The family of this 78-nucleotide sequence from Ornithorhynchus anatinus is "Small nucleolar RNA SNORD47".
The organism belongs to Ornithorhynchus, within Eukaryota.
The family's RNA type in Rfam is C/D-box small nucleolar RNA.
The base pairs follow the family's consensus structure, which was predicted with ILM.
Rfam's curators put it in the seed alignment.
RNA sequence: AACCAAUGAUGAUAAGAUUCUGCCAAAUGAAAGAGACUGAUUUCACCUAUAAAACGUUCCUUUUUUUAUUCUGAGGUU
Numbered sequence: 001a002a003c004c005a006a007u008g009a010u011g012a013u014a015a016g017a018u019u020c021u022g023c024c025a026a027a028u029g030a031a032a033g034a035g036a037c038u039g040a041u042u043u044c045a046c047c048u049a050u051a052a053a054a055c056g057u058u059c060c061u062u063u064u065u066u067u068a069u070u071c072u073g074a075g076g077u078u
Stems, first nucleotide, its partner, number of pairs: 001078004